[Rfam]
RNA sequence: UAAUGCACUUCAGGGCGGGGUGAGAGUCCCCACCGGCGGUAAAGCCCGCGAACCGUAAGGUUGAUUCGGUUAGAUUCCGAAGCCGACAGUAUAGUCUGGAUGGAAGAAGGUAUUA
Numbered sequence: 001u002a003a004u005g006c007a008c009u010u011c012a013g014g015g016c017g018g019g020g021u022g023a024g025a026g027u028c029c030c031c032a033c034c035g036g037c038g039g040u041a042a043a044g045c046c047c048g049c050g051a052a053c054c055g056u057a058a059g060g061u062u063g064a065u066u067c068g069g070u071u072a073g074a075u076u077c078c079g080a081a082g083c084c085g086a087c088a089g090u091a092u093a094g095u096c097u098g099g100a101u102g103g104a105a106g107a108a109g110g111u112a113u114u115a
Stems, first nucleotide, its partner, number of pairs: 003113004008109004018030003032095002034085002036049004044083002052061003065081005087098003

Rfam assigns this 115-nucleotide sequence from Clostridium sp. BL8 to the family "FMN riboswitch aptamer (RFN element)". The source organism's lineage runs through Bacteria, Bacillota, Clostridia, Eubacteriales and Clostridium. It scores 111 bits against the family's covariance model. Rfam links the family to the GO term FMN binding.